[Rfam]
RNA sequence: AGAUGUGAGGGCGAUCUGGCUGUGACAUCUGUCACCCCACUAAUUGCCAGGGUUGAUUUGGCUGAUCUGGCUGGCUAGGCAGAUGUCCCAUUCUUCCCUCAAUGCUCCAUGUGUGUCCCUUCUGAAGCUGUAGGCUCAGUCGAAGAAGACGACCUCCCCAACAGAGACGGUACCAUUCAUUGGUCGAGGGUAUAUGGUAGCUGUGCUCCCCAGGUAGAACCUCCAGACAAGCUCAAGGUCCAUUUAUAGGAGAACAUAGGGCAGUCAAGCUUCCAAGACUGCAGAUACAUCCAAGUGAGGCACUGCAUGGGACAGUUUGCCAUUGGUU
Number, nucleotide and partner (000 for none) at each position: 001a000002g107003a106004u000005g000006u101007g100008a099009g098010g097011g096012c000013g093014a092015u000016c000017u000018g000019g089020c000021u000022g000023u000024g087025a086026c085027a084028u083029c082030u081031g080032u079033c078034a000035c074036c073037c070038c069039a068040c000041u000042a000043a066044u065045u064046g062047c061048c060049a000050g000051g000052g000053u000054u000055g000056a000057u000058u000059u000060g048061g047062c046063u000064g045065a044066u043067c000068u039069g038070g037071c000072u000073g036074g035075c000076u000077a000078g033079g032080c031081a030082g029083a028084u027085g026086u025087c024088c000089c019090a000091u000092u014093c013094u000095u000096c011097c010098c009099u008100c007101a006102a000103u000104g000105c000106u003107c002108c000109a000110u000111g000112u000113g000114u000115g000116u170117c169118c000119c166120u165121u164122c139123u138124g137125a136126a000127g135128c134129u000130g000131u000132a000133g000134g128135c127136u125137c124138a123139g122140u161141c000142g159143a000144a000145g000146a000147a000148g156149a155150c000151g000152a000153c000154c000155u149156c148157c000158c000159c142160a000161a140162c000163a000164g121165a120166g119167a000168c000169g117170g116171u000172a000173c000174c000175a000176u000177u000178c000179a000180u000181u000182g000183g000184u000185c000186g000187a000188g000189g000190g000191u000192a000193u000194a000195u000196g000197g000198u000199a000200g270201c269202u268203g000204u000205g000206c264207u263208c000209c261210c260211c259212a000213g257214g000215u000216a000217g000218a000219a000220c000221c252222u251223c250224c249225a000226g000227a247228c000229a245230a244231g243232c000233u000234c000235a000236a000237g000238g000239u000240c000241c000242a000243u231244u230245u229246a000247u227248a000249g224250g223251a222252g221253a000254a000255c000256a000257u213258a000259g211260g210261g209262c000263a207264g206265u000266c000267a000268a202269g201270c200271u000272u000273c000274c000275a000276a000277g000278a000279c000280u000281g000282c000283a000284g000285a000286u000287a000288c000289a000290u000291c000292c000293a328294a327295g000296u000297g323298a000299g321300g320301c319302a316303c315304u314305g313306c000307a000308u000309g000310g000311g000312a000313c305314a304315g303316u302317u000318u000319g301320c300321c299322a000323u297324u000325g000326g000327u294328u293
7SK RNA: a 328-nucleotide sequence from Cephalopterus ornatus. 7SK was discovered as an abundant small nuclear RNA in the mid-70s but a possible function has only recently been suggested. Its Rfam clan is "7SK clan". For this family Rfam cites "Transcription: surprising role for an elusive small nuclear RNA" (Blencowe, Curr Biol, 2002). The family's RNA type in Rfam is non-coding RNA gene.